[Rfam]
RNA sequence: CCCGCAACCAAUUAACACAGGGUCCAGUGUGUUUUAAAGCCCCGCAGCAGUUCGGGGCUUUUUACUAUGUGACCUCUGCUGCAGCGUUGAAUGGUGUACUUUCGUGGUGCAAUUCAACGAUUUGGCAGUCAAUUACACUGGGCAAUUACGCCCUUUUUUU
Dot-bracket structure: ...................................(((((((((........)))))))))..............................................................................((((......)))).......
The record is a 160-nucleotide RNA sequence from Pseudidiomarina aestuarii, which matches "Gammaprotebacteria rimP leader" in Rfam. Its family is annotated with regulation of gene expression in the Gene Ontology. NCBI's taxonomy places the organism under Bacteria, Pseudomonadati, Gammaproteobacteria, Alteromonadales, Pseudidiomarina. It is annotated as a cis-regulatory leader. The match comes from Rfam's covariance-model search (58 bits).